[Rfam]
RNA sequence: GCCAGAUGAUGUGAGUUGAUGGCAAUAGCACUCUGUGCAAAGAUGACCUUCAUCUAUCACCCCAUACUGAUGGCU
Numbered sequence: 001g002c003c004a005g006a007u008g009a010u011g012u013g014a015g016u017u018g019a020u021g022g023c024a025a026u027a028g029c030a031c032u033c034u035g036u037g038c039a040a041a042g043a044u045g046a047c048c049u050u051c052a053u054c055u056a057u058c059a060c061c062c063c064a065u066a067c068u069g070a071u072g073g074c075u
Stems, first nucleotide, its partner, number of pairs: 001074004028038004